[Rfam]
RNA sequence: AGAGGAGUAGGCCCCACCGCGUUAAGUGCUGACGGAACGGAAUGUGAACGUCGGACGAAGACUCAGUCGCGAUGGUGGGGCCGCAUUCGCCUAA
Numbered sequence: 001a002g003a004g005g006a007g008u009a010g011g012c013c014c015c016a017c018c019g020c021g022u023u024a025a026g027u028g029c030u031g032a033c034g035g036a037a038c039g040g041a042a043u044g045u046g047a048a049c050g051u052c053g054g055a056c057g058a059a060g061a062c063u064c065a066g067u068c069g070c071g072a073u074g075g076u077g078g079g080g081c082c083g084c085a086u087u088c089g090c091c092u093a094a
Stems, first nucleotide, its partner, number of pairs: 003092003010082010020071003026056002029054006040088005060068003
Dot-bracket structure: ..(((....(((((((((((((...((.((((((.....[[[[[....))))))))...(((...)))))).)))))))))).]]]]].)))..